[Rfam]
RNA sequence: AUGGGGGUAACCGAAAACCCAAAUAUUAGAGUAGGUA
Numbered sequence: 001a002u003g004g005g006g007g008u009a010a011c012c013g014a015a016a017a018c019c020c021a022a023a024u025a026u027u028a029g030a031g032u033a034g035g036u037a
Base pairs, nucleotide, nucleotide: 002021003020004019005018010036011035012034